[Rfam]
RNA sequence: UAGGAUAAGGUGUUUAGGUGCACGGAGAAAUUUUGAAUUCUUAAGUGUAGGUUCAAUUCCUAUUGUCCUAG
Dot-bracket structure: (((((((...(((........))).((.((.......)).))....(((((.......)))))))))))).